[Rfam]
RNA sequence: AUCAAAACCGGGUAUUUGAACUAUAUUGUACGCCCGACAUAUCGUCGAAGUACUAAAAAGGAGGAA
Numbered sequence: 001a002u003c004a005a006a007a008c009c010g011g012g013u014a015u016u017u018g019a020a021c022u023a024u025a026u027u028g029u030a031c032g033c034c035c036g037a038c039a040u041a042u043c044g045u046c047g048a049a050g051u052a053c054u055a056a057a058a059a060g061g062a063g064g065a066a
Base pairs, nucleotide, nucleotide: 010035011034012033013032026056027055028053029052030051031050037045038044
SAM-V (S-adenosyl methionine) riboswitch aptamer: a 66-nucleotide RNA from Pelagibacterales bacterium SAG-MED05.
The organism belongs to Candidatus Pelagibacterales, within Bacteria.
Rfam's curators write: SAM-V riboswitch is a cis-regulatory element that was recognised in marine bacteria it recognise S-adenosylmethione (SAM). The binding of SAM leads to the association of the triplex third strand in the aptamer of SAM-V riboswitch that stabilizes a short helix and occludes the ribosome binding site.
A reference for the family is Poiata et al. (2009), "A variant riboswitch aptamer class for S-adenosylmethionine common in marine bacteria", RNA.